A member of the RNA family "SAM riboswitch aptamer (S box leader)" from Schinkia azotoformans, 107 nucleotides long. Pairs were carried over by alignment from the consensus structure, which is taken from published work. A search with the family's covariance model found it, with a score of 94 bits. The organism belongs to Schinkia azotoformans, within Bacteria. Its family is annotated with regulation of gene expression in the Gene Ontology.
[Rfam]
RNA sequence: UUCUUAUCAAGAGAGACUGAGGGAUUGGCCCAAUGAAGUCUCAGCAACCGGCCUUUAAGAAGAAACGGUGCUAAUUCCAUAGGCGAUAAGCGCCUAGAAGAUGAGAA
Numbered sequence: 001u002u003c004u005u006a007u008c009a010a011g012a013g014a015g016a017c018u019g020a021g022g023g024a025u026u027g028g029c030c031c032a033a034u035g036a037a038g039u040c041u042c043a044g045c046a047a048c049c050g051g052c053c054u055u056u057a058a059g060a061a062g063a064a065a066c067g068g069u070g071c072u073a074a075u076u077c078c079a080u081a082g083g084c085g086a087u088a089a090g091c092g093c094c095u096a097g098a099a100g101a102u103g104a105g106a107a
Stems, first nucleotide, its partner, number of pairs: 001107008013042005021031003026079003043072004048068002052062001076099001080096006